[Rfam]
RNA: Rhodo-rpoB RNA
RNA sequence: GAUUCGGGCGAAAUGCGGUGGGACGCGUUUCUGGUAUAGAAUCAGUGCGAACUCCAACCCGACGCUGCGUGCCUCCCCAAGCAUCGCGGCG
Numbered sequence: 001g002a003u004u005c006g007g008g009c010g011a012a013a014u015g016c017g018g019u020g021g022g023a024c025g026c027g028u029u030u031c032u033g034g035u036a037u038a039g040a041a042u043c044a045g046u047g048c049g050a051a052c053u054c055c056a057a058c059c060c061g062a063c064g065c066u067g068c069g070u071g072c073c074u075c076c077c078c079a080a081g082c083a084u085c086g087c088g089g090c091g
Base pairs, nucleotide, nucleotide: 001043002042003041004040005039010031011030012029013028014027015026016025017024063091064090065089066088067087069084070083071082072081